[Rfam]
RNA: Bacterial large subunit ribosomal RNA, nucleotides 9 to 508
Organism: Lwoffella lincolnii
RNA sequence: AAUGAAGUGCACAUGGUGGAUGCCUUGGCAGUCAGAGGCGAAGAAAGACGUGACAGCCUGCGAUAAGCGUCGGUGAGGUGGCAAUAUCCUGUGACCCGGCGAUUUCUGAAUGGGGAAACCCAACCAACACAAGUUGGUUAUUACACAGUUUACUGUGUAAGGCAAACCGGGAGAAGUGAAACAUCUCAGUACCCCGAGGAAAAGACAUCAAAAGAGAUUCCCCAAGUAGCGGCGAGCGAACGGGGAGGAGCCGAUCAAUUUUACAGUAGCAAAAUGGCAUGGGAAAGCCAACCAUAGUAGGUGAUAGUCCUGUAUGCGAAACUGUUUAAGCGACAUAUCAAGUAGGGCGGAACACGAGAAAUUCUGUCUGAAGAUGGGGGGACCAUCCUCCAAGGCUAAAUACUCCUGACUGACCGAUAGUGAACCAGUACCGUGAGGGAAAGGCGAAAAGAACCCCUGUUAGGGGAGUGAAAUAGAACCUGAAACCGUGUGCAUACAAG
Numbered sequence: 001a002a003u004g005a006a007g008u009g010c011a012c013a014u015g016g017u018g019g020a021u022g023c024c025u026u027g028g029c030a031g032u033c034a035g036a037g038g039c040g041a042a043g044a045a046a047g048a049c050g051u052g053a054c055a056g057c058c059u060g061c062g063a064u065a066a067g068c069g070u071c072g073g074u075g076a077g078g079u080g081g082c083a084a085u086a087u088c089c090u091g092u093g094a095c096c097c098g099g100c101g102a103u104u105u106c107u108g109a110a111u112g113g114g115g116a117a118a119c120c121c122a123a124c125c126a127a128c129a130c131a132a133g134u135u136g137g138u139u140a141u142u143a144c145a146c147a148g149u150u151u152a153c154u155g156u157g158u159a160a161g162g163c164a165a166a167c168c169g170g171g172a173g174a175a176g177u178g179a180a181a182c183a184u185c186u187c188a189g190u191a192c193c194c195c196g197a198g199g200a201a202a203a204g205a206c207a208u209c210a211a212a213a214g215a216g217a218u219u220c221c222c223c224a225a226g227u228a229g230c231g232g233c234g235a236g237c238g239a240a241c242g243g244g245g246a247g248g249a250g251c252c253g254a255u256c257a258a259u260u261u262u263a264c265a266g267u268a269g270c271a272a273a274a275u276g277g278c279a280u281g282g283g284a285a286a287g288c289c290a291a292c293c294a295u296a297g298u299a300g301g302u303g304a305u306a307g308u309c310c311u312g313u314a315u316g317c318g319a320a321a322c323u324g325u326u327u328a329a330g331c332g333a334c335a336u337a338u339c340a341a342g343u344a345g346g347g348c349g350g351a352a353c354a355c356g357a358g359a360a361a362u363u364c365u366g367u368c369u370g371a372a373g374a375u376g377g378g379g380g381g382a383c384c385a386u387c388c389u390c391c392a393a394g395g396c397u398a399a400a401u402a403c404u405c406c407u408g409a410c411u412g413a414c415c416g417a418u419a420g421u422g423a424a425c426c427a428g429u430a431c432c433g434u435g436a437g438g439g440a441a442a443g444g445c446g447a448a449a450a451g452a453a454c455c456c457c458u459g460u461u462a463g464g465g466g467a468g469u470g471a472a473a474u475a476g477a478a479c480c481u482g483a484a485a486c487c488g489u490g491u492g493c494a495u496a497c498a499a500g
Base pairs, nucleotide, nucleotide: 007495008494009493010492011491012490013489014488015487016486022480023444024443027415028414029412030411031410032409033408034407035406036404037403038163039162046107047106048105049062050061051060068101069100070099071098072097073096077089078088112121113120114119122139123138124137125136126135127134128133141160142159143158144157145156146155147154148153167198168196169195170194171193178185179184208215209214218400219246220245221244222243223242229237230236249397250396251395252394255333256332259329260328263325264324265323266322267321269317270316271315275290276289277288278287293297299311300310301309345369346368347367348366349365350364351363352362376391377390378389379388380387431438432437454466455465456464457463